[Rfam]
RNA sequence: CGAUGAGGUAGAGGAGCAGGGAUUAAUAGUACGCUAUGUGAGGAUGACAACUGUGAUCAUAGCUGAAAGGAGUCUCCUGCCGAAGUGAAAAUAAAACGUCAAUCUUUAUUUUUGCUGGUGUUGCCUUUAAUAGGGGUAACACUGUCAUAAGAGUAUGUAUUUUAGCUUUUUACUCUUAUGGAGGGCUACUGAUCGU
Numbered sequence: 001c002g003a004u005g006a007g008g009u010a011g012a013g014g015a016g017c018a019g020g021g022a023u024u025a026a027u028a029g030u031a032c033g034c035u036a037u038g039u040g041a042g043g044a045u046g047a048c049a050a051c052u053g054u055g056a057u058c059a060u061a062g063c064u065g066a067a068a069g070g071a072g073u074c075u076c077c078u079g080c081c082g083a084a085g086u087g088a089a090a091a092u093a094a095a096a097c098g099u100c101a102a103u104c105u106u107u108a109u110u111u112u113u114g115c116u117g118g119u120g121u122u123g124c125c126u127u128u129a130a131u132a133g134g135g136g137u138a139a140c141a142c143u144g145u146c147a148u149a150a151g152a153g154u155a156u157g158u159a160u161u162u163u164a165g166c167u168u169u170u171u172a173c174u175c176u177u178a179u180g181g182a183g184g185g186c187u188a189c190u191g192a193u194c195g196u
Base pairs, nucleotide, nucleotide: 007190008189009188010187011186016080017079018078019077020076021074022073023072024071033063034062035061036060037059038058084116085115086114087113088112089111090110091109092108093107094106095105117143118142119141120140121139122138123137124136125135126134127133145181146180147179148178149177150176151175152174153173154172155171

A member of the RNA family "Lysine riboswitch aptamer" from Litchfieldia stipae, 196 nucleotides long.
It scores 123 bits against the family's covariance model.
Taxonomically the source falls in Litchfieldia (Bacteria, Bacilli, Caryophanales, Bacillaceae).
For this family Rfam cites "Regulation of lysine biosynthesis and transport genes in bacteria: yet another RNA riboswitch?" (Rodionov et al., Nucleic Acids Res, 2003).